[Rfam]
RNA: Small nucleolar RNA snR80
RNA sequence: AAAUGUUUGCCAACACUCUGGUGCCAAAUCAUUGCUAUUUCACGUCCCUUUUUAUUCAGGUUCUAGGACUUGAUUGAUCGGAUCAGACUGAUAGGUAAUGAAGUAUUUGGUUCCUAUUUUGGUGCAAACUAGAAUAAUUCAGCUGACUACUCACCAUUGUACCCCAUUACGUAUAUGGGUACGAUCGGUCCAUUUCAUUAGCUCACAU
Numbered sequence: 001a002a003a004u005g006u007u008u009g010c011c012a013a014c015a016c017u018c019u020g021g022u023g024c025c026a027a028a029u030c031a032u033u034g035c036u037a038u039u040u041c042a043c044g045u046c047c048c049u050u051u052u053u054a055u056u057c058a059g060g061u062u063c064u065a066g067g068a069c070u071u072g073a074u075u076g077a078u079c080g081g082a083u084c085a086g087a088c089u090g091a092u093a094g095g096u097a098a099u100g101a102a103g104u105a106u107u108u109g110g111u112u113c114c115u116a117u118u119u120u121g122g123u124g125c126a127a128a129c130u131a132g133a134a135u136a137a138u139u140c141a142g143c144u145g146a147c148u149a150c151u152c153a154c155c156a157u158u159g160u161a162c163c164c165c166a167u168u169a170c171g172u173a174u175a176u177g178g179g180u181a182c183g184a185u186c187g188g189u190c191c192a193u194u195u196c197a198u199u200a201g202c203u204c205a206c207a208u
Stems, first nucleotide, its partner, number of pairs: 007127003020114002023111002026108004141203004154188002156185002159182006